[Rfam]
RNA sequence: GCGUCCGUCGUUGGGGAGUAGCCGAUUUCCGCCCUGCGGAAAUGUACGUGUCAACAUACUCGUUGCAAAACGUGGCACGUACGGACUGAAUAUUUUCAGUCAGGCGAGACCAUUGACACACCAACUGCUGUUUACUGGGGGCAGUGGUGUGUUAUAUGGAACUCCCGGUCAGGAC
Dot-bracket structure: .........................((............))..((((((((((.......((((....))))))))))))))(..((((...............................................................................))))..)